PhotoRC-II RNA: a 95-nucleotide RNA sequence. The sequence is in the family's curated seed alignment. It is annotated as a cis-regulatory element. The base pairs follow the family's consensus structure, which is taken from published work.
RNA sequence: UAACACAUAUCUGCUCCCGCUAACCAAGACCUAUGGGAGGAUAAAUUACGUCUUUCAUAUCCACCAGUGAGGGAUUGGUGGAAAUAUGUUUCGCA
Numbered sequence: 001u002a003a004c005a006c007a008u009a010u011c012u013g014c015u016c017c018c019g020c021u022a023a024c025c026a027a028g029a030c031c032u033a034u035g036g037g038a039g040g041a042u043a044a045a046u047u048a049c050g051u052c053u054u055u056c057a058u059a060u061c062c063a064c065c066a067g068u069g070a071g072g073g074a075u076u077g078g079u080g081g082a083a084a085u086a087u088g089u090u091u092c093g094c095a
Stems, first nucleotide, its partner, number of pairs: 014039005026054005060082007